[Rfam]
RNA: Nuclear RNase P
Organism: Acromyrmex echinatior
RNA sequence: AUCGAAGUCAAUCUGAUAAGAAGGUCACAUGUGCUCAACGUAUACAUAUACAUGAUACAGUUACUGUUGAAACUGCCUUGGGAAGGUCUGAGACGUAGUCGGUUUUUCGAAGAAUAUAUUCUAGAAGGGUGGUCUUGUAAGACGAGACCCAAAGAAAUGAGAAACAGCGAUCGAUCCAGGCUUUUCUUUACAGUGAAUGCUAGGAUAUGUGUCUCCCACUGUGUUCGAUCAUUCUGUCUUUUGUUUCUCUAUCUUUAACGAUCCAUCGCUUUCUCUUCCUCCGUCUCUUGUUCGUUAAUUUUUUUUUUAAUUUUGACUCUACGAGUUUCGUUUCGAUUUUCGCGAAUGUAUCGGAAUUGGAAAAUUCUAGCAUAUGUCACUCAAUCAUACAGCACAAUUUGCAAGUCGCCUUGCAACGUGUAGGAUUCUAGCAGGACGGAACUCAAUUUAAACAAUUCUAAUUCUGGU
Numbered sequence: 001a002u003c004g005a006a007g008u009c010a011a012u013c014u015g016a017u018a019a020g021a022a023g024g025u026c027a028c029a030u031g032u033g034c035u036c037a038a039c040g041u042a043u044a045c046a047u048a049u050a051c052a053u054g055a056u057a058c059a060g061u062u063a064c065u066g067u068u069g070a071a072a073c074u075g076c077c078u079u080g081g082g083a084a085g086g087u088c089u090g091a092g093a094c095g096u097a098g099u100c101g102g103u104u105u106u107u108c109g110a111a112g113a114a115u116a117u118a119u120u121c122u123a124g125a126a127g128g129g130u131g132g133u134c135u136u137g138u139a140a141g142a143c144g145a146g147a148c149c150c151a152a153a154g155a156a157a158u159g160a161g162a163a164a165c166a167g168c169g170a171u172c173g174a175u176c177c178a179g180g181c182u183u184u185u186c187u188u189u190a191c192a193g194u195g196a197a198u199g200c201u202a203g204g205a206u207a208u209g210u211g212u213c214u215c216c217c218a219c220u221g222u223g224u225u226c227g228a229u230c231a232u233u234c235u236g237u238c239u240u241u242u243g244u245u246u247c248u249c250u251a252u253c254u255u256u257a258a259c260g261a262u263c264c265a266u267c268g269c270u271u272u273c274u275c276u277u278c279c280u281c282c283g284u285c286u287c288u289u290g291u292u293c294g295u296u297a298a299u300u301u302u303u304u305u306u307u308u309a310a311u312u313u314u315g316a317c318u319c320u321a322c323g324a325g326u327u328u329c330g331u332u333u334c335g336a337u338u339u340u341c342g343c344g345a346a347u348g349u350a351u352c353g354g355a356a357u358u359g360g361a362a363a364a365u366u367c368u369a370g371c372a373u374a375u376g377u378c379a380c381u382c383a384a385u386c387a388u389a390c391a392g393c394a395c396a397a398u399u400u401g402c403a404a405g406u407c408g409c410c411u412u413g414c415a416a417c418g419u420g421u422a423g424g425a426u427u428c429u430a431g432c433a434g435g436a437c438g439g440a441a442c443u444c445a446a447u448u449u450a451a452a453c454a455a456u457u458c459u460a461a462u463u464c465u466g467g468u
Stems, first nucleotide, its partner, number of pairs: 001468004008461001010459001013405002017401003021079005036069005089450004117131005132148006160368002162365001175356001177354001406439003410435005